[Rfam]
RNA sequence: AGGUAAGGGCAAUUCGUGGAUGCCUUGGCAUGUACAGGCGAUGAAGGACGUGGCACGCUGCGAUAAGCGUCGGUGAGGUGUGAGCAACCUUUGACCCGACGAUUUCCGAAUGGGGAAACCCACCUAUCCCGAUUAUUUCUUCCCGGUUCGCCGGUCGGAGGUAAUCAGGAAGAAGGUAUCAUGAAACUGAAUACAUAGGUUUCGUGAAGCGAACCCGGGGAACUGAAACAUCUCAGUACCUGGAGGAAAAGACAUCAACCGAGAUUCCGUUAGUAGUGGCGAGCGAACGCGGACCAGGCCAGUGCCUUUUGUUCAACUAGCAGAACGAUCUGGAAAGUUCGGCCGUAGCGGGUGACAGCCCCGUAUGCGAAAGUGAGACAAGAGGACUUGAGUAGGGCGGGACACGUGUAAUCCUGUCUGAAUAUAGGGGGACCACCCUCUAAGCCUAAAUACUCGUACAUGACCGAUAGCGAACUAGUACCGUGAGGGAAAGGUGAAAAGCACCCCGAUGAGGGGAGUGAAACAGUACCUGAAACGGAUUGCCUACAAG
Numbered sequence: 001a002g003g004u005a006a007g008g009g010c011a012a013u014u015c016g017u018g019g020a021u022g023c024c025u026u027g028g029c030a031u032g033u034a035c036a037g038g039c040g041a042u043g044a045a046g047g048a049c050g051u052g053g054c055a056c057g058c059u060g061c062g063a064u065a066a067g068c069g070u071c072g073g074u075g076a077g078g079u080g081u082g083a084g085c086a087a088c089c090u091u092u093g094a095c096c097c098g099a100c101g102a103u104u105u106c107c108g109a110a111u112g113g114g115g116a117a118a119c120c121c122a123c124c125u126a127u128c129c130c131g132a133u134u135a136u137u138u139c140u141u142c143c144c145g146g147u148u149c150g151c152c153g154g155u156c157g158g159a160g161g162u163a164a165u166c167a168g169g170a171a172g173a174a175g176g177u178a179u180c181a182u183g184a185a186a187c188u189g190a191a192u193a194c195a196u197a198g199g200u201u202u203c204g205u206g207a208a209g210c211g212a213a214c215c216c217g218g219g220g221a222a223c224u225g226a227a228a229c230a231u232c233u234c235a236g237u238a239c240c241u242g243g244a245g246g247a248a249a250a251g252a253c254a255u256c257a258a259c260c261g262a263g264a265u266u267c268c269g270u271u272a273g274u275a276g277u278g279g280c281g282a283g284c285g286a287a288c289g290c291g292g293a294c295c296a297g298g299c300c301a302g303u304g305c306c307u308u309u310u311g312u313u314c315a316a317c318u319a320g321c322a323g324a325a326c327g328a329u330c331u332g333g334a335a336a337g338u339u340c341g342g343c344c345g346u347a348g349c350g351g352g353u354g355a356c357a358g359c360c361c362c363g364u365a366u367g368c369g370a371a372a373g374u375g376a377g378a379c380a381a382g383a384g385g386a387c388u389u390g391a392g393u394a395g396g397g398c399g400g401g402a403c404a405c406g407u408g409u410a411a412u413c414c415u416g417u418c419u420g421a422a423u424a425u426a427g428g429g430g431g432a433c434c435a436c437c438c439u440c441u442a443a444g445c446c447u448a449a450a451u452a453c454u455c456g457u458a459c460a461u462g463a464c465c466g467a468u469a470g471c472g473a474a475c476u477a478g479u480a481c482c483g484u485g486a487g488g489g490a491a492a493g494g495u496g497a498a499a500a501g502c503a504c505c506c507c508g509a510u511g512a513g514g515g516g517a518g519u520g521a522a523a524c525a526g527u528a529c530c531u532g533a534a535a536c537g538g539a540u541u542g543c544c545u546a547c548a549a550g
Base pairs, nucleotide, nucleotide: 007545008544009543010542011541012540013539014538015537016536022530023494024493027465028464029462030461031460032459033458034457035456036454037453038210039209046107047106048105049062050061051060068101069100070099071098072097073096077089078088079087112121113120114119122177123176124175125174179207180206181205182204183203185201186200187199188198214245215243216242217241218240219239225232226231255262256261265450266293267292268291269290270289276284277283296447297446298445299444306384307383308382309381310380311379312378313377316374317373318372320368321367322366326341327340328339330337344348350362351361352360395419396418397417398416399415400414401413402412426441427440428439429438430437481488482487504516505515506514507513
Dot-bracket structure: ......((((((((((.....(((..(((((((((((((......((((((........))).....((((((...(((.......)))......))))))...)))....(((....)))((((................................................)))).(((((.((((.........)))).))))).))...((((((.....((....))......))))).).........((....))..((((((.....((.....))....)))))..((((......((((((((..(((.(((...(((.(......).)))..(...).(((.......)))...)))...)))..))))))))..........((((((((.........))))))))......(((((......)))))..))))..)..)).))))))).))...............((....))....)).........((((.....)))).............).....)))))))))).....
Rfam assigns this 550-nucleotide part of an RNA from Sphingomonas sp. OV641 to the family "Bacterial large subunit ribosomal RNA". Its family is annotated with ribosome and structural constituent of ribosome in the Gene Ontology. NCBI's taxonomy places the organism under Bacteria, Pseudomonadati, Alphaproteobacteria, Sphingomonadales, Sphingomonas.